A member of the RNA family "Glycine riboswitch aptamer" from Streptomyces sp. HG99, 113 nucleotides long. Gene Ontology term of the family: glycine biosynthetic process.
RNA sequence: GCACAUCUGAAAAGCGGGCCGCUGACCGGUGGCUCCACCCAAGGUGCAAGUCAGGACCACCGUUUGCCGGGGUCGUGACGAACCUCUCAGGUUCCGAUGACAGAUGGGGAGGA
Numbered sequence: 001g002c003a004c005a006u007c008u009g010a011a012a013a014g015c016g017g018g019c020c021g022c023u024g025a026c027c028g029g030u031g032g033c034u035c036c037a038c039c040c041a042a043g044g045u046g047c048a049a050g051u052c053a054g055g056a057c058c059a060c061c062g063u064u065u066g067c068c069g070g071g072g073u074c075g076u077g078a079c080g081a082a083c084c085u086c087u088c089a090g091g092u093u094c095c096g097a098u099g100a101c102a103g104a105u106g107g108g109g110a111g112g113a
Stems, first nucleotide, its partner, number of pairs: 002108001004106006016035006037092003041087001044086001046084001050079004